HNH endonuclease-associated RNA and ORF (HEARO) RNA: a 215-nucleotide RNA from Ktedonobacteria bacterium brp13. On this family, see Weinberg et al., Nature 2009: "Exceptional structured noncoding RNAs revealed by bacterial metagenome analysis". The match comes from Rfam's covariance-model search (132 bits). By type it is a non-coding RNA gene. NCBI's taxonomy places the organism under Bacteria, Bacillati, Chloroflexota, Ktedonobacteria.
RNA sequence: GUCAGGAACCCCACGGAUAAAUCCGGGGGCUUGCGCAAGUAAGUCCACACCUGACCAGUCUUAGCACUAGCGAUAGUGCUCCCUUCGGGAAGAAAUAGGUACCAACGGGUGCAUGCCAGCCCGCUGCUCUACGGUCCCACAUUAAACAGGGCUACAGGGUUAACCCAGUGUGUUGGACGAUAAACCCUCCCGAAGAUUGACGAGGCAAACAACAC
Numbered sequence: 001g002u003c004a005g006g007a008a009c010c011c012c013a014c015g016g017a018u019a020a021a022u023c024c025g026g027g028g029g030c031u032u033g034c035g036c037a038a039g040u041a042a043g044u045c046c047a048c049a050c051c052u053g054a055c056c057a058g059u060c061u062u063a064g065c066a067c068u069a070g071c072g073a074u075a076g077u078g079c080u081c082c083c084u085u086c087g088g089g090a091a092g093a094a095a096u097a098g099g100u101a102c103c104a105a106c107g108g109g110u111g112c113a114u115g116c117c118a119g120c121c122c123g124c125u126g127c128u129c130u131a132c133g134g135u136c137c138c139a140c141a142u143u144a145a146a147c148a149g150g151g152c153u154a155c156a157g158g159g160u161u162a163a164c165c166c167a168g169u170g171u172g173u174u175g176g177a178c179g180a181u182a183a184a185c186c187c188u189c190c191c192g193a194a195g196a197u198u199g200a201c202g203a204g205g206c207a208a209a210c211a212a213c214a215c
Stems, first nucleotide, its partner, number of pairs: 001055006010029002012026001016023002030043004058201003063080005083195008092186001099132002103126002106123005114207004134178004139173004146169002149166003153162002